[Rfam]
RNA sequence: CUGGGUUACGGGGAUAUGUACCCGCAAACAUGGCUUGGCAUGAUGGUCGGGGCGUUGUGCGCACUGGCUGGCGUGUUGACCAUUGCCAUGCCUGUUCCUGUCAUCGUCAAUAAC
Numbered sequence: 001c002u003g004g005g006u007u008a009c010g011g012g013g014a015u016a017u018g019u020a021c022c023c024g025c026a027a028a029c030a031u032g033g034c035u036u037g038g039c040a041u042g043a044u045g046g047u048c049g050g051g052g053c054g055u056u057g058u059g060c061g062c063a064c065u066g067g068c069u070g071g072c073g074u075g076u077u078g079a080c081c082a083u084u085g086c087c088a089u090g091c092c093u094g095u096u097c098c099u100g101u102c103a104u105c106g107u108c109a110a111u112a113a114c
Stems, first nucleotide, its partner, number of pairs: 002113001004111001008107004013102004018097001020095002037077004050062001
A member of the RNA family "Potassium channel RNA editing signal" from Oryzias latipes, 114 nucleotides long. The family's consensus secondary structure is taken from published work. It is annotated as a cis-regulatory element. Rfam describes the family as follows. This family represents a group of sequences related to the human potassium channel Kv1.1 hairpin element which directs the efficient modification of an adenosine to inosine by an adenosine deaminase acting on RNA (ADAR). A search with the family's covariance model found it, with a score of 94 bits.